Histone 3' UTR stem-loop: a 46-nucleotide RNA from Calidris pygmaea. Taxonomically the source falls in Calidris (Eukaryota, Opisthokonta, Dipnotetrapodomorpha, Amniota). A search with the family's covariance model found it, with a score of 39 bits. From the family's description: The mRNAs of metazoan histone genes lack a poly-A tail. 3' end processing occurs at a site between a highly conserved stem-loop (modelled by this family) and a purine rich region around 20 nts downstream (the histone downstream element, or HDE).
RNA sequence: CCAAAGGCUCUUUUAAGAGCCACCAAUUUUUUCACAUAGGAGGGCU
Dot-bracket structure: .....((((((....)))))).........................
Numbered sequence: 001c002c003a004a005a006g007g008c009u010c011u012u013u014u015a016a017g018a019g020c021c022a023c024c025a026a027u028u029u030u031u032u033c034a035c036a037u038a039g040g041a042g043g044g045c046u
Stems, first nucleotide, its partner, number of pairs: 006021006